A member of the RNA family "Small nucleolar RNA R66" from Prunus yedoensis, 73 nucleotides long. It is annotated as a C/D-box small nucleolar RNA. NCBI's taxonomy places the organism under Eukaryota, Streptophyta, Tracheophyta, Euphyllophyta, Prunus yedoensis. About the family: snoR66 is a C/D box small nucleolar RNA, which acts as a methylation guide for 18S ribosomal RNA in plants. snoR66 has been alternatively named snoZ269 in rice.

RNA sequence: UCCGAUGAUGUCAAGAAAUCUUUGAGACCUGAUCAUCCAAUUGAUGAUAACUAUAAGCAUGGUUUCUGAGGAC
Numbered sequence: 001u002c003c004g005a006u007g008a009u010g011u012c013a014a015g016a017a018a019u020c021u022u023u024g025a026g027a028c029c030u031g032a033u034c035a036u037c038c039a040a041u042u043g044a045u046g047a048u049a050a051c052u053a054u055a056a057g058c059a060u061g062g063u064u065u066c067u068g069a070g071g072a073c
Stems, first nucleotide, its partner, number of pairs: 001072003032042001033039001
Dot-bracket structure: (((............................((.....)..)...........................))).